[Rfam]
RNA sequence: GACGAGCUUGGUAACGUAAGCUUGUGACCCAAGUGGGAGCUUUAAGGUGGUGGGACACGGGUUCGACAUUUUGAGUUGGUUCUGCGGUGGUAAGAUUCAGGCUUGCCCGUACCAAGCCAGAGUUGGAUUAAGGGGCACCAGCGUGCGUCGUGGUUCGUAGAGAGGAGGGUAAUGCGUGAGGCUGGUUACACAGAGCCAGCGAACACCUACCGCUCCUGGCAGUGGAAGGAUAACAGGCUUGAUCCAUUAGGAACCACCAUAAGAGCCAGCGAACACCUACCGCUCCU
Numbered sequence: 001g002a003c004g005a006g007c008u009u010g011g012u013a014a015c016g017u018a019a020g021c022u023u024g025u026g027a028c029c030c031a032a033g034u035g036g037g038a039g040c041u042u043u044a045a046g047g048u049g050g051u052g053g054g055a056c057a058c059g060g061g062u063u064c065g066a067c068a069u070u071u072u073g074a075g076u077u078g079g080u081u082c083u084g085c086g087g088u089g090g091u092a093a094g095a096u097u098c099a100g101g102c103u104u105g106c107c108c109g110u111a112c113c114a115a116g117c118c119a120g121a122g123u124u125g126g127a128u129u130a131a132g133g134g135g136c137a138c139c140a141g142c143g144u145g146c147g148u149c150g151u152g153g154u155u156c157g158u159a160g161a162g163a164g165g166a167g168g169g170u171a172a173u174g175c176g177u178g179a180g181g182c183u184g185g186u187u188a189c190a191c192a193g194a195g196c197c198a199g200c201g202a203a204c205a206c207c208u209a210c211c212g213c214u215c216c217u218g219g220c221a222g223u224g225g226a227a228g229g230a231u232a233a234c235a236g237g238c239u240u241g242a243u244c245c246a247u248u249a250g251g252a253a254c255c256a257c258c259a260u261a262a263g264a265g266c267c268a269g270c271g272a273a274c275a276c277c278u279a280c281c282g283c284u285c286c287u
Stems, first nucleotide, its partner, number of pairs: 001040001004023007028037003046287002049284005059277002061274005069265003076262002078255004082250003086247001088246003092243001098241008107229002110227001112225003116220004120215004125156006132149002135146004164210001166208003173203001175201003182193003
RNA: Plant signal recognition particle RNA